[Rfam]
RNA sequence: GGGGACCUGCGGGGCCCUACACCACGACAGGGGCCCUCGCGCCCACAAAGCAACGGAAGACAGAAA
Number, nucleotide and partner (000 for none) at each position: 001g018002g017003g016004g015005a000006c014007c013008u012009g000010c000011g000012g008013g007014g006015c004016c003017c002018u001019a000020c000021a000022c000023c000024a000025c000026g000027a000028c000029a000030g044031g000032g043033g042034c041035c000036c000037u000038c000039g000040c000041g034042c033043c032044c030045a000046c000047a000048a000049a000050g000051c000052a000053a000054c000055g000056g000057a000058a000059g000060a000061c000062a000063g000064a000065a000066a000
RNA: L2-Alphaproteobacteria ribosomal protein leader